[Rfam]
RNA sequence: UUGAAAAGAACGGUUGUCCUUCAUAUAUACUCGAUAAUAUGGAUCGAGAGUCUCUACCGGAACACCUUAAACGUUCUGACUAUGAAGGCAGAAGAUUUAGAU
Numbered sequence: 001u002u003g004a005a006a007a008g009a010a011c012g013g014u015u016g017u018c019c020u021u022c023a024u025a026u027a028u029a030c031u032c033g034a035u036a037a038u039a040u041g042g043a044u045c046g047a048g049a050g051u052c053u054c055u056a057c058c059g060g061a062a063c064a065c066c067u068u069a070a071a072c073g074u075u076c077u078g079a080c081u082a083u084g085a086a087g088g089c090a091g092a093a094g095a096u097u098u099a100g101a102u
Base pairs, nucleotide, nucleotide: 018088019087020086021085022084023083024082025081030048031047032046033045034044035043058078059077060076061075062074063073
The record is a 102-nucleotide sequence from Priestia filamentosa, which matches "Purine riboswitch aptamer" in Rfam.
Pairs were carried over by alignment from the consensus structure, which is taken from published work.